The family of this 44-nucleotide RNA sequence from Aeromicrobium terrae is "L31-Actinobacteria ribosomal protein leader". Taxonomically the source falls in Aeromicrobium (Bacteria, Bacillati, Propionibacteriales, Nocardioidaceae). The literature on the family includes a 2020 paper in BMC Microbiol by Eckert and Weinberg, "Discovery of 20 novel ribosomal leader candidates in bacteria and archaea". The base pairs follow the family's consensus structure, which is taken from published work. The family's RNA type in Rfam is cis-regulatory leader.
[Rfam]
RNA sequence: CCGGUUCUGGUUCACGGAACGCGACGCGUCCCGACCCAGCGACC
Numbered sequence: 001c002c003g004g005u006u007c008u009g010g011u012u013c014a015c016g017g018a019a020c021g022c023g024a025c026g027c028g029u030c031c032c033g034a035c036c037c038a039g040c041g042a043c044c
Stems, first nucleotide, its partner, number of pairs: 003044003007039004015033003019029004
Dot-bracket structure: ..(((.((((....(((.((((...)))).)))..))))..)))